[Rfam]
RNA sequence: GCGCCAGUCUCUGGGGAGUAGCCCGCCCGGCACCACGCGUGCCCGGGGGCAUGCGUCAACAAACUUGGGUCGUCCCGGCCUAUGGCGCAUGCGGUUCAGCCGAACUGGGCGAGACCAUUGACUGCAUGCCGAUCCAAUGGCCGGAGUCGGGGUGCAGUCAAUGCUGUCUGCUCAUAUAUC
Numbered sequence: 001g002c003g004c005c006a007g008u009c010u011c012u013g014g015g016g017a018g019u020a021g022c023c024c025g026c027c028c029g030g031c032a033c034c035a036c037g038c039g040u041g042c043c044c045g046g047g048g049g050c051a052u053g054c055g056u057c058a059a060c061a062a063a064c065u066u067g068g069g070u071c072g073u074c075c076c077g078g079c080c081u082a083u084g085g086c087g088c089a090u091g092c093g094g095u096u097c098a099g100c101c102g103a104a105c106u107g108g109g110c111g112a113g114a115c116c117a118u119u120g121a122c123u124g125c126a127u128g129c130c131g132a133u134c135c136a137a138u139g140g141c142c143g144g145a146g147u148c149g150g151g152g153u154g155c156a157g158u159c160a161a162u163g164c165u166g167u168c169u170g171c172u173c174a175u176a177u178a179u180c
Stems, first nucleotide, its partner, number of pairs: 026047005049092010066082005
This 180-nucleotide sequence from Paracidovorax anthurii belongs to the Rfam family "Manganese Mn2+ riboswitch aptamer (yybP-ykoY)".
Rfam's curators write: This RNA was originally discovered in E. coli during a large scale screen and was named SraF. The family was later found to exist upstream of related families of protein genes in many bacteria, including the the yybP and ykoK genes in B. subtilis. The specific functions of these proteins are unknown, but this structured RNA element may be involved in their genetic regulation as a riboswitch.